Rfam assigns this 51-nucleotide RNA from Anaeromusa burkinensis to the family "6A RNA". The family's RNA type in Rfam is small RNA. It is one of the family's seed sequences. NCBI's taxonomy places the organism under Bacteria, Negativicutes, Selenomonadales, Sporomusaceae, Anaeromusa burkinensis.
[Rfam]
RNA sequence: AGAUGUAGUCGUAGAGCGCGACUACGGUAAUCAAAAAAAAGCUCACUGAGA
Numbered sequence: 001a002g003a004u005g006u007a008g009u010c011g012u013a014g015a016g017c018g019c020g021a022c023u024a025c026g027g028u029a030a031u032c033a034a035a036a037a038a039a040a041g042c043u044c045a046c047u048g049a050g051a
Base pairs, nucleotide, nucleotide: 006024007023008022009021010020011019014044015043016042017041